RNA: Alphaproteobacterial sRNA ar45
Organism: Plantimonas leprariae
RNA sequence: GCCCAAAGUCGCACGAGCCUGUGGGCGUCCCCCGAUCCGCUAUCGCGCGGGCCAUCGGGACGGUCCUGGAGAACGCCUCCAGUCGACCUCGCGGCAUCGCGAAGUCGAGGACGCCUUAAAGCAACGACGGUGCGGGCUUUU
Numbered sequence: 001g002c003c004c005a006a007a008g009u010c011g012c013a014c015g016a017g018c019c020u021g022u023g024g025g026c027g028u029c030c031c032c033c034g035a036u037c038c039g040c041u042a043u044c045g046c047g048c049g050g051g052c053c054a055u056c057g058g059g060a061c062g063g064u065c066c067u068g069g070a071g072a073a074c075g076c077c078u079c080c081a082g083u084c085g086a087c088c089u090c091g092c093g094g095c096a097u098c099g100c101g102a103a104g105u106c107g108a109g110g111a112c113g114c115c116u117u118a119a120a121g122c123a124a125c126g127a128c129g130g131u132g133c134g135g136g137c138u139u140u141u
Base pairs, nucleotide, nucleotide: 001137002136003135004134008128009127010126011125017122018121023116024115025114026113027112028111029110030109031059032058033057034056035055037050038049039048040047066082067081068080069079070078083108084107085106086105089102090101091100092099093098